[Rfam]
RNA sequence: AGAAAAGCUUUCUAGGGUUCCGUGACGUAAAGUCAGUCUGGUCCGAGAGAAAGCGCACAGCAAGAGCUGUGUACACGGAAGGAUAAAAGCCUGGGAGUA
Numbered sequence: 001a002g003a004a005a006a007g008c009u010u011u012c013u014a015g016g017g018u019u020c021c022g023u024g025a026c027g028u029a030a031a032g033u034c035a036g037u038c039u040g041g042u043c044c045g046a047g048a049g050a051a052a053g054c055g056c057a058c059a060g061c062a063a064g065a066g067c068u069g070u071g072u073a074c075a076c077g078g079a080a081g082g083a084u085a086a087a088a089g090c091c092u093g094g095g096a097g098u099a
Stems, first nucleotide, its partner, number of pairs: 007054006015044002020041002022038001023035004055072007074094001076097001080092003
About this RNA
Rfam assigns this 99-nucleotide RNA from Sporomusaceae bacterium FL31 to the family "Guanidine-I riboswitch aptamer". This family represents a conserved RNA structure found upstream of the ykkC and yxkD genes in Bacillus subtilis and related genes in other bacteria. Its family is annotated with regulation of gene expression in the Gene Ontology. The pairing is the family consensus, mapped onto this sequence. A search with the family's covariance model found it, with a score of 90 bits. Rfam 15.1 lists 1,509 matches to the family in 1,281 species.